[Rfam]
RNA: SAM (S-adenosyl methionine) riboswitch aptamer
Organism: Nakamurella endophytica
RNA sequence: GGUCAUGAGCGCCAGCGCCAAGCCCCGGCUCGCUGGCCGGCAACCCUCCACUCGCGGUGGGGUGCCCCGGGUGAUGACCAGGCGGGACGUGCGAACCGGCGUCCCGCAAGCGCGGGCC
Numbered sequence: 001g002g003u004c005a006u007g008a009g010c011g012c013c014a015g016c017g018c019c020a021a022g023c024c025c026c027g028g029c030u031c032g033c034u035g036g037c038c039g040g041c042a043a044c045c046c047u048c049c050a051c052u053c054g055c056g057g058u059g060g061g062g063u064g065c066c067c068c069g070g071g072u073g074a075u076g077a078c079c080a081g082g083c084g085g086g087a088c089g090u091g092c093g094a095a096c097c098g099g100c101g102u103c104c105c106g107c108a109a110g111c112g113c114g115g116g117c118c
Stems, first nucleotide, its partner, number of pairs: 001079004009038001011037006021030002039066003044062003048057002082107009